Rfam assigns this 118-nucleotide RNA sequence from Tumebacillus flagellatus to the family "ylbH leader". The pairing is the family consensus, mapped onto this sequence. It scores 81 bits against the family's covariance model. Its family is annotated with regulation of gene expression in the Gene Ontology. From the family's description: This family is a putative regulatory RNA structure that is found upstream of the ylbH gene in B. subtilis and related low GC Gram-positive bacteria. Rfam classes the family as a cis-regulatory leader.
[Rfam]
RNA sequence: AAAAUCAAAAACCCGCGUCCGGGUAUACGCGGGUUUUUGCCUACCGUUUGCACGAUAGGAACUGGGAGAGGAGAAACCGGAGGAAGAGCUUAUGGGGAAACCUAAGCCUUCUCCGCGG
Dot-bracket structure: ..........((((((((........))))))))(((.(.....((......)).......).)))...........((((.((((.(((((..........)))))))))))))...